[Rfam]
RNA sequence: CGCGACACCAAUUAAAGGUGUAGUUCCCCACCCAGGAGCCACUUUACCAUAUUCCGAAUUC
Numbered sequence: 001c002g003c004g005a006c007a008c009c010a011a012u013u014a015a016a017g018g019u020g021u022a023g024u025u026c027c028c029c030a031c032c033c034a035g036g037a038g039c040c041a042c043u044u045u046a047c048c049a050u051a052u053u054c055c056g057a058a059u060u061c
Stems, first nucleotide, its partner, number of pairs: 017045002020042002023039005

Shown here is a 61-nucleotide RNA sequence from Cucumis melo, a member of the family "Plastid-psbN 5UTR RNA". The literature on the family includes a 2023 paper in Plant Commun by Richter et al., "Retrograde signaling in plants: A critical review focusing on the GUN pathway and beyond".